[Rfam]
RNA sequence: ACCUGUAACGGGUCUUCAUCAGAAGGUACACCGUCAUCCCCAUCCACCUUCCUGUCUCCACCUCAGCAGGAGCCCAGUUCGAGUCUCGUGGUGUCCUUUUAUUCACUCACUCGGGUAACCAGUGAUGCUGGAGGGACCUAAGCAAUGAACGCAACUUGACGAGGGAAGAAAUUCUGCAGUCUGGUGUUCACCAUGGGACGGCGGUGCUGGAUUACUCUUAUUGGGGUUGGAAUGUGGCUUGGCGGGCUGGUGUAUCGACUGAUAUU
Numbered sequence: 001a002c003c004u005g006u007a008a009c010g011g012g013u014c015u016u017c018a019u020c021a022g023a024a025g026g027u028a029c030a031c032c033g034u035c036a037u038c039c040c041c042a043u044c045c046a047c048c049u050u051c052c053u054g055u056c057u058c059c060a061c062c063u064c065a066g067c068a069g070g071a072g073c074c075c076a077g078u079u080c081g082a083g084u085c086u087c088g089u090g091g092u093g094u095c096c097u098u099u100u101a102u103u104c105a106c107u108c109a110c111u112c113g114g115g116u117a118a119c120c121a122g123u124g125a126u127g128c129u130g131g132a133g134g135g136a137c138c139u140a141a142g143c144a145a146u147g148a149a150c151g152c153a154a155c156u157u158g159a160c161g162a163g164g165g166a167a168g169a170a171a172u173u174c175u176g177c178a179g180u181c182u183g184g185u186g187u188u189c190a191c192c193a194u195g196g197g198a199c200g201g202c203g204g205u206g207c208u209g210g211a212u213u214a215c216u217c218u219u220a221u222u223g224g225g226g227u228u229g230g231a232a233u234g235u236g237g238c239u240u241g242g243c244g245g246g247c248u249g250g251u252g253u254a255u256c257g258a259c260u261g262a263u264a265u266u
Base pairs, nucleotide, nucleotide: 001013002012003011018263019262020261021260022259027254028253029252030251031250032249033248037246038245039244040242041241042240044237045236046235047234049232050231051230052229062226063225064223065222066221068219069218070217071216072215074210075209076208077207078206079204080203081202083199084198085197086196087195088194089193090192091191093137094136095135096134097133098132099131100130101129104127105126107125108124109123110122111121113120114119138142146190147189148188149187150186151185152184156183158181159180160179165174166173167172

Background: This 266-nucleotide RNA from Bipolaris zeicola belongs to the Rfam family "Fungal signal recognition particle RNA". It scores 140 bits against the family's covariance model.